TPP riboswitch aptamer (THI element): a 112-nucleotide RNA sequence from Paenibacillus sp. NFR01. The base pairs follow the family's consensus structure, which is taken from published work. Rfam links the family to the GO term thiamine pyrophosphate binding. Rfam's curators write: Vitamin B(1) in its active form thiamin pyrophosphate (TPP) is an essential coenzyme that is synthesised by coupling of pyrimidine and thiazole moieties in bacteria. NCBI's taxonomy places the organism under Bacteria, Bacilli, Caryophanales, Paenibacillaceae, Paenibacillus.

RNA sequence: UCAUAGACCCAGGGGUGCUGGAAUCGGCCGGCUGAGAUUGUAUCCCAUAAAGAUACUGACCCUUAUACCUGAUCUGGAUAAUGCCAGCGUAGGAACACUUUACGGUUAAGGC
Numbered sequence: 001u002c003a004u005a006g007a008c009c010c011a012g013g014g015g016u017g018c019u020g021g022a023a024u025c026g027g028c029c030g031g032c033u034g035a036g037a038u039u040g041u042a043u044c045c046c047a048u049a050a051a052g053a054u055a056c057u058g059a060c061c062c063u064u065a066u067a068c069c070u071g072a073u074c075u076g077g078a079u080a081a082u083g084c085c086a087g088c089g090u091a092g093g094a095a096c097a098c099u100u101u102a103c104g105g106u107u108a109a110g111g112c
Stems, first nucleotide, its partner, number of pairs: 006100002011063004017032005040056004068093004074087004